[Rfam]
Transposase-1 RNA: a 56-nucleotide RNA sequence from Ligilactobacillus agilis. It scores 69 bits against the family's covariance model.
RNA sequence: CAAGAGUCAGUCACUGUCAUUACCCACAAGUUGGGAUAUGGGAAUACUGGUGUUGA
Numbered sequence: 001c002a003a004g005a006g007u008c009a010g011u012c013a014c015u016g017u018c019a020u021u022a023c024c025c026a027c028a029a030g031u032u033g034g035g036a037u038a039u040g041g042g043a044a045u046a047c048u049g050g051u052g053u054u055g056a
Base pairs, nucleotide, nucleotide: 006051007050008049009048010047011046017041018040019039020038024035025034
Rfam classes the family as a small RNA.